[Rfam]
RNA: Ribosomal protein L13 leader
RNA sequence: GGUAUUGUUUACCUCCACAAAAUAAGCCCCGGAAACUUAUUAAAGUUGAGUUAAACAAAAC
Number, nucleotide and partner (000 for none) at each position: 001g000002g000003u000004a000005u000006u057007g056008u055009u054010u053011a052012c000013c000014u000015c000016c000017a000018c000019a000020a000021a041022a040023u039024a038025a037026g036027c000028c000029c000030c000031g000032g000033a000034a000035a000036c026037u025038u024039a023040u022041u021042a000043a000044a000045g000046u000047u000048g000049a000050g000051u000052u011053a010054a009055a008056c007057a006058a000059a000060a000061c000